About this RNA
Archaeal large subunit ribosomal RNA: a 587-nucleotide part of an RNA from Halorutilus salinus.
RNA sequence: CUACUACGCCACCUGGUGAAUAGCUCGGCUCGAGUGCCGACGAAGGACGUGCCAAGCUGCGAAAAGCUCGGGGAAGGCGCACGGAGCCUAAGAACCCGAGAUCUCCUAAUGGGAAUCCCUAUUACAGCCGCCUCGUGCGGUGGGGAACGCCCCGAACUGAAACAUCUCAGUAGGGGCAGGAAAAGAAAUCAAACCGAGACGUCGUGAGUAACCGCGAGUGAAACCGACAUAGUCCAAACCGAAGUCCGGGCGAGACGCGAGUCUCGCUGGAUGCCAACGAGCUUCGCUCGUUGAGCACCUUUCGGGCAAUGUGGUGUAUUGGACUGACACUCAUCCGGCGAACGGCGGGCUGAAGUCUCCUGGAACGGAGCGCGAAACAGGGUGAAAGCCCCGUAAGCCUACCCAACUAACCGGUGCGUCAGCUCCGGAGUACCAAGGGUUGGAAAUCCCUUGGAAAAACGGGAGACAUCGACUCCCAAGACUAAGUACUACUCGAGACCGAUAGCGCAAUAGUAGCGUGAGCAAAAGCUGGAAAGCACCCUUAGAAGGGAGGUGAGAUAGGGCUUGAAAUCAGGUGGUUAUGGAGC
Numbered sequence: 001c002u003a004c005u006a007c008g009c010c011a012c013c014u015g016g017u018g019a020a021u022a023g024c025u026c027g028g029c030u031c032g033a034g035u036g037c038c039g040a041c042g043a044a045g046g047a048c049g050u051g052c053c054a055a056g057c058u059g060c061g062a063a064a065a066g067c068u069c070g071g072g073g074a075a076g077g078c079g080c081a082c083g084g085a086g087c088c089u090a091a092g093a094a095c096c097c098g099a100g101a102u103c104u105c106c107u108a109a110u111g112g113g114a115a116u117c118c119c120u121a122u123u124a125c126a127g128c129c130g131c132c133u134c135g136u137g138c139g140g141u142g143g144g145g146a147a148c149g150c151c152c153c154g155a156a157c158u159g160a161a162a163c164a165u166c167u168c169a170g171u172a173g174g175g176g177c178a179g180g181a182a183a184a185g186a187a188a189u190c191a192a193a194c195c196g197a198g199a200c201g202u203c204g205u206g207a208g209u210a211a212c213c214g215c216g217a218g219u220g221a222a223a224c225c226g227a228c229a230u231a232g233u234c235c236a237a238a239c240c241g242a243a244g245u246c247c248g249g250g251c252g253a254g255a256c257g258c259g260a261g262u263c264u265c266g267c268u269g270g271a272u273g274c275c276a277a278c279g280a281g282c283u284u285c286g287c288u289c290g291u292u293g294a295g296c297a298c299c300u301u302u303c304g305g306g307c308a309a310u311g312u313g314g315u316g317u318a319u320u321g322g323a324c325u326g327a328c329a330c331u332c333a334u335c336c337g338g339c340g341a342a343c344g345g346c347g348g349g350c351u352g353a354a355g356u357c358u359c360c361u362g363g364a365a366c367g368g369a370g371c372g373c374g375a376a377a378c379a380g381g382g383u384g385a386a387a388g389c390c391c392c393g394u395a396a397g398c399c400u401a402c403c404c405a406a407c408u409a410a411c412c413g414g415u416g417c418g419u420c421a422g423c424u425c426c427g428g429a430g431u432a433c434c435a436a437g438g439g440u441u442g443g444a445a446a447u448c449c450c451u452u453g454g455a456a457a458a459a460c461g462g463g464a465g466a467c468a469u470c471g472a473c474u475c476c477c478a479a480g481a482c483u484a485a486g487u488a489c490u491a492c493u494c495g496a497g498a499c500c501g502a503u504a505g506c507g508c509a510a511u512a513g514u515a516g517c518g519u520g521a522g523c524a525a526a527a528g529c530u531g532g533a534a535a536g537c538a539c540c541c542u543u544a545g546a547a548g549g550g551a552g553g554u555g556a557g558a559u560a561g562g563g564c565u566u567g568a569a570a571u572c573a574g575g576u577g578g579u580u581a582u583g584g585a586g587c
Stems, first nucleotide, its partner, number of pairs: 008579009022565001023529002027500002029497006036489001044107004048061003067100006076088003111120003127141005148179001149177005159166002189197002201228004211219002231483004239314003325421004335414004349398003355371001357370004374378001380392003433454007461477005516523002
Pairs were carried over by alignment from the consensus structure, which is taken from published work. Lineage of the source: Archaea > Methanobacteriati > Methanobacteriota > Halorutilales > Halorutilus. Its Rfam clan is "LSU clan". A search with the family's covariance model found it, with a score of 2791 bits.